[Rfam]
RNA sequence: CAAGAAGGCAUCCAAAGGGAUCGCAUUGAUCCCAAAUCUUAUAUGCCUUGUGUCUGUGUAUGUAUGUAUCGAAUUGGGAUCAUGUCAUCCUUUUGGAUUCCUCCUU
Dot-bracket structure: .(((.(.(.((((((((((((.((((.(((((...(.....................................)..))))))))).)))))))))))).).).)))